The family of this 253-nucleotide part of an RNA from Mycena chlorophos is "Eukaryotic large subunit ribosomal RNA". Clan: LSU clan. It scores 3246 bits against the family's covariance model.
RNA sequence: CGCUUGAAGUCAGUCGCGUUGUGCGGGAUUCAGCCUGGCUUUUGCUUGGUGUACUUCCUGUAUGAUGGGUCAGCAUCAGUUUUGACCGGUGGAUAAGGGCGUAGGGAAUGUGGCAUCCUCGGAUGUGUUAUAGCCUUGCGUCGCAUACAUCGGUUGGGACUGAGGAACUCAGCACGCCGCAAGGCGGGGUUUUACCACCUUCGUGCUUAGGAUGCUGGCAUAAUGGCUUUAAUCGACCCGUCUUGAAACACGG
Numbered sequence: 001c002g003c004u005u006g007a008a009g010u011c012a013g014u015c016g017c018g019u020u021g022u023g024c025g026g027g028a029u030u031c032a033g034c035c036u037g038g039c040u041u042u043u044g045c046u047u048g049g050u051g052u053a054c055u056u057c058c059u060g061u062a063u064g065a066u067g068g069g070u071c072a073g074c075a076u077c078a079g080u081u082u083u084g085a086c087c088g089g090u091g092g093a094u095a096a097g098g099g100c101g102u103a104g105g106g107a108a109u110g111u112g113g114c115a116u117c118c119u120c121g122g123a124u125g126u127g128u129u130a131u132a133g134c135c136u137u138g139c140g141u142c143g144c145a146u147a148c149a150u151c152g153g154u155u156g157g158g159a160c161u162g163a164g165g166a167a168c169u170c171a172g173c174a175c176g177c178c179g180c181a182a183g184g185c186g187g188g189g190u191u192u193u194a195c196c197a198c199c200u201u202c203g204u205g206c207u208u209a210g211g212a213u214g215c216u217g218g219c220a221u222a223a224u225g226g227c228u229u230u231a232a233u234c235g236a237c238c239c240g241u242c243u244u245g246a247a248a249c250a251c252g253g
Stems, first nucleotide, its partner, number of pairs: 001235002004232009017067008071217007238253004
Rfam 15.1 lists 107,465 matches to the family in 2,616 species. NCBI's taxonomy places the organism under Eukaryota, Dikarya, Agaricomycotina, Agaricales, Mycena.